[Rfam]
RNA: c-di-GMP-I riboswitch aptamer
Organism: Eisenbergiella massiliensis
RNA sequence: UUUAACACUUGGCAAACUUAUUGAAAGAUAAGGACGCAAAGCUACAGGGCCUUCCCUCUAUAAGAGGUUGGCAGCCAGUUGCCUGA
Numbered sequence: 001u002u003u004a005a006c007a008c009u010u011g012g013c014a015a016a017c018u019u020a021u022u023g024a025a026a027g028a029u030a031a032g033g034a035c036g037c038a039a040a041g042c043u044a045c046a047g048g049g050c051c052u053u054c055c056c057u058c059u060a061u062a063a064g065a066g067g068u069u070g071g072c073a074g075c076c077a078g079u080u081g082c083c084u085g086a
Stems, first nucleotide, its partner, number of pairs: 012037002017032006040080004047076002049072003056066004